About this RNA:
Selenocysteine insertion sequence 4: a 38-nucleotide RNA from [Clostridium] scindens. Rfam's curators put it in the seed alignment. Gene Ontology term of the family: selenocysteine incorporation. NCBI's taxonomy places the organism under Bacteria, Clostridia, Lachnospiraceae, Lachnoclostridium, [Clostridium] scindens. Rfam 15.1 lists 436 matches to the family in 281 species. A reference for the family is Graentzdoerffer et al. (2001), "Molecular analysis of the grd operon coding for genes of the glycine reductase and of the thioredoxin system from Clostridium sticklandii", Arch Microbiol.

RNA sequence: GGCACUUGUACUCGUUGCUGUGCAACGAUGGCUAAAGA
Number, nucleotide and partner (000 for none) at each position: 001g000002g000003c000004a000005c031006u030007u000008g000009u000010a000011c000012u000013c027014g026015u025016u024017g023018c022019u000020g000021u000022g018023c017024a016025a015026c014027g013028a000029u000030g006031g005032c000033u000034a000035a000036a000037g000038a000